[Rfam]
RNA sequence: GCAUCUGAAUCUUUCCCACUCCUUGUGGUACAGUGCUGGACUGGGGACACGCGAUGCGAGAGGAAAGCGGAGGAAAUCCAGACAAGGUCCCUGGCACCACAGUGGGACUUGUCUCUACACCUUCGCAACAUCU
Numbered sequence: 001g002c003a004u005c006u007g008a009a010u011c012u013u014u015c016c017c018a019c020u021c022c023u024u025g026u027g028g029u030a031c032a033g034u035g036c037u038g039g040a041c042u043g044g045g046g047a048c049a050c051g052c053g054a055u056g057c058g059a060g061a062g063g064a065a066a067g068c069g070g071a072g073g074a075a076a077u078c079c080a081g082a083c084a085a086g087g088u089c090c091c092u093g094g095c096a097c098c099a100c101a102g103u104g105g106g107a108c109u110u111g112u113c114u115c116u117a118c119a120c121c122u123u124c125g126c127a128a129c130a131u132c133u
Stems, first nucleotide, its partner, number of pairs: 001057005013047006021039002067126006080114007095104002
RNA: Small nucleolar RNA SNORA55
Organism: Zapornia atra